[Rfam]
Rfam assigns this 75-nucleotide RNA from Myotis lucifugus to the family "mir-9223 microRNA precursor family". The family has 9 seed sequences and 14,641 matches in Rfam 15.1. The base pairs follow the family's consensus structure, which was predicted with RNAalifold. Lineage of the source: Eukaryota > Chordata > Sarcopterygii > Eutheria > Myotis.
Nucleotides: 075
Stems, first nucleotide, its partner, number of pairs: 003073001005071012019057001021055002025052009
Number, partner (000 for none) and nucleotide at each position: 001000g002000a003073c004000a005071g006070u007069u008068c009067u010066c011065g012064g013063g014062u015061g016060a017000c018000g019057c020000u021055c022054c023000c024000u025052g026051g027050a028049a029048u030047u031046g032045g033044g034000c035000u036000c037000c038000c039000u040000c041000c042000u043000c044033u045032c046031u047030g048029g049028u050027u051026c052025c053000u054022g055021g056000u057019g058000c059000a060016u061015c062014a063013c064012c065011c066010g067009a068008g069007a070006a071005c072000c073003g074000c075000a